[Rfam]
Nucleotides: 173
Base pairs, nucleotide, nucleotide: 007167008166009165010164011163017079018078019077020076022074023073024072025071033064034063035062036061037060038059039058083114084113085112086111087110088109089108090107091106092105093104115141116140118138119137120136121135122134123133124132125131143158144157145156146155147154
Number, partner (000 for none) and nucleotide at each position: 001000c002000u003000a004000a005000a006000u007167g008166a009165u010164a011163g012000a013000g014000g015000u016000u017079g018078c019077a020076u021000u022074a023073u024072u025071a026000a027000u028000c029000a030000g031000u032000a033064a034063u035062u036061u037060u038059g039058u040000g041000g042000a043000g044000c045000u046000a047000a048000g049000c050000a051000c052000g053000a054000u055000g056000a057000a058039a059038c060037a061036a062035a063034a064033u065000g066000a067000a068000a069000g070000g071025u072024a073023a074022u075000c076020a077019u078018g079017c080000c081000g082000a083114a084113a085112u086111g087110u088109a089108u090107a091106a092105g093104u094000g095000a096000u097000g098000c099000u100000u101000u102000a103000a104093g105092c106091u107090u108089a109088u110087a111086u112085g113084u114083u115141g116140g117000g118138g119137u120136u121135a122134u123133a124132u125131a126000a127000a128000a129000u130000a131125u132124a133123u134122a135121u136120a137119a138118c139000a140116c141115u142000g143158u144157c145156a146155c147154a148000u149000u150000a151000a152000u153000u154147u155146g156145u157144g158143g159000a160000g161000g162000g163011c164010u165009a166008u167007c168000u169000u170000u171000a172000g173000a

Overview: The family of this 173-nucleotide sequence from Romboutsia ilealis is "Lysine riboswitch aptamer". It scores 120 bits against the family's covariance model.